[Rfam]
RNA sequence: CAAUGCCAUUUGGUAUCGACUUGCGGUCAUUCUUUGUGAUUGUGUCUCGAAACAUGGCGAGAAUACAAGGGGAGCGGAUCUUGCGAUAAUUGGUUGCUUAUUUAUGAGUUUCCAGUUACUAUAUGCCCGUUUACAUGU
Numbered sequence: 001c002a003a004u005g006c007c008a009u010u011u012g013g014u015a016u017c018g019a020c021u022u023g024c025g026g027u028c029a030u031u032c033u034u035u036g037u038g039a040u041u042g043u044g045u046c047u048c049g050a051a052a053c054a055u056g057g058c059g060a061g062a063a064u065a066c067a068a069g070g071g072g073a074g075c076g077g078a079u080c081u082u083g084c085g086a087u088a089a090u091u092g093g094u095u096g097c098u099u100a101u102u103u104a105u106g107a108g109u110u111u112c113c114a115g116u117u118a119c120u121a122u123a124u125g126c127c128c129g130u131u132u133a134c135a136u137g138u
Stems, first nucleotide, its partner, number of pairs: 004059006018046003023043006073131005089116005096109003

Small nucleolar RNA F1/F2/snoR5a: a 138-nucleotide sequence from Miscanthus lutarioriparius.
Rfam classes the family as an H/ACA-box small nucleolar RNA.
This family contains F1, F2 and snoR5a sequences, all of which are members of the the H/ACA class of snoRNA that guide the sites of modification of uridines to pseudouridines.